This 113-nucleotide RNA sequence from Methylobacterium sp. Leaf104 belongs to the Rfam family "SAM-I/IV (S-adenosyl methionine) riboswitch aptamer". Rfam 15.1 lists 567 matches to the family in 508 species. The base pairs follow the family's consensus structure, which is taken from published work. A reference for the family is Weinberg et al. (2008), "The aptamer core of SAM-IV riboswitches mimics the ligand-binding site of SAM-I riboswitches", RNA. The match comes from Rfam's covariance-model search (56 bits).
RNA sequence: GGCCAGCAUCAAGAGUCGGGGCGAUCCCUGACGCCAACCUGCUCUCCCGGGCAAGGUGGCACCCUCCGGCAAACGGCGGGGAUGUGGCCGGACCGGCAACCAAACGGGCUUCG
Number, nucleotide and partner (000 for none) at each position: 001g000002g000003c000004c000005a000006g085007c084008a083009u082010c081011a000012a000013g000014a000015g032016u000017c030018g029019g028020g027021g026022c000023g000024a000025u000026c021027c020028c019029u018030g017031a000032c015033g060034c059035c058036a000037a000038c056039c055040u054041g052042c051043u050044c000045u000046c108047c107048c106049g105050g043051g042052c041053a000054a040055g039056g038057u000058g035059g034060c033061a000062c000063c000064c000065u000066c000067c000068g000069g000070c000071a000072a000073a000074c000075g000076g000077c000078g000079g000080g000081g010082a009083u008084g007085u006086g000087g097088c096089c095090g094091g000092a000093c000094c090095g089096g088097c087098a000099a000100c000101c000102a000103a000104a000105c049106g048107g047108g046109c000110u000111u000112c000113g000